[Rfam]
RNA: tRNA
RNA sequence: GGGCCUGUAGCUCAGUUGGUCAGAGCGUCCGGCUGAUAACCGGGAGGUCACAAGUUCGAACCUUGUCAGGCCCA
Numbered sequence: 001g002g003g004c005c006u007g008u009a010g011c012u013c014a015g016u017u018g019g020u021c022a023g024a025g026c027g028u029c030c031g032g033c034u035g036a037u038a039a040c041c042g043g044g045a046g047g048u049c050a051c052a053a054g055u056u057c058g059a060a061c062c063u064u065g066u067c068a069g070g071c072c073c074a
Base pairs, nucleotide, nucleotide: 001073002072003071004070005069006068007067010026011025012024013023028044029043030042031041032040050066051065052064053063054062